[Rfam]
Metazoan signal recognition particle RNA: a 298-nucleotide RNA sequence from Chelonia mydas.
Clan: SRP clan.
For this family Rfam cites "Towards the structure of the mammalian signal recognition particle" (Wild et al., Curr Opin Struct Biol, 2002).
Rfam classes the family as a non-coding RNA gene.
The match comes from Rfam's covariance-model search (210 bits).
Rfam's curators write: The signal recognition particle (SRP) is a universally conserved ribonucleoprotein.
RNA sequence: GCCGGGCGCCGUGGCUGGCGCCUGUGAUCCCAGCUCCCGGGGGGGCUGAGGCCGGCGGGUCGGUGGAGCCGGGGUUCUAGGCUGCGGCGGGCGGUGCCGAGCGGGUGUCCGCACUAAGCUCGGCAGCGAUAUGGUGAUCCCUGGGGAGCUUGGGGUCACCAGGUUGCCUAAGGAGGGGUGAACCGGCCCAGGUCGGAAACGGAGCAGGUCAAAACCCCCCUGCCGAGCCCUAGUGGGAUCGCGCCUGUGAAUAGUCCCUGCAGCCUAGCCUGGGCAAGGCGCUGAGACGCGGCCUCUU
Numbered sequence: 001g002c003c004g005g006g007c008g009c010c011g012u013g014g015c016u017g018g019c020g021c022c023u024g025u026g027a028u029c030c031c032a033g034c035u036c037c038c039g040g041g042g043g044g045g046c047u048g049a050g051g052c053c054g055g056c057g058g059g060u061c062g063g064u065g066g067a068g069c070c071g072g073g074g075u076u077c078u079a080g081g082c083u084g085c086g087g088c089g090g091g092c093g094g095u096g097c098c099g100a101g102c103g104g105g106u107g108u109c110c111g112c113a114c115u116a117a118g119c120u121c122g123g124c125a126g127c128g129a130u131a132u133g134g135u136g137a138u139c140c141c142u143g144g145g146g147a148g149c150u151u152g153g154g155g156u157c158a159c160c161a162g163g164u165u166g167c168c169u170a171a172g173g174a175g176g177g178g179u180g181a182a183c184c185g186g187c188c189c190a191g192g193u194c195g196g197a198a199a200c201g202g203a204g205c206a207g208g209u210c211a212a213a214a215c216c217c218c219c220c221u222g223c224c225g226a227g228c229c230c231u232a233g234u235g236g237g238a239u240c241g242c243g244c245c246u247g248u249g250a251a252u253a254g255u256c257c258c259u260g261c262a263g264c265c266u267a268g269c270c271u272g273g274g275c276a277a278g279g280c281g282c283u284g285a286g287a288c289g290c291g292g293c294c295u296c297u298u
Base pairs, nucleotide, nucleotide: 001046002045003044004023005022006021007020008019009018010017011016028043029042030041048296049295050294051293052292053291054290060285061284062283063282064281065280068275069274070273071270072269077268078267079266080265081264082263083262084261085260086259087258089256091255092254094252095251097249101248102247103246104245105244106243107242108241109237110236112235113234114233115232116231118228119227120226121225122224123223124222125221126220127166128165129164130163132161133160134159135158136157137156138155139154140153141152143150144149167173168172175218176217177216178215179214185210186209187208188207193202194201195200